RNA: Acido-Lenti-1 RNA
RNA sequence: CCUAUGGCUCACGCCACAGGCUACGUGCUGCCGCCGCAUUCGCGGCU
Numbered sequence: 001c002c003u004a005u006g007g008c009u010c011a012c013g014c015c016a017c018a019g020g021c022u023a024c025g026u027g028c029u030g031c032c033g034c035c036g037c038a039u040u041c042g043c044g045g046c047u
Base pairs, nucleotide, nucleotide: 001020002019003018005016006015007014008013033046034045035044036043037042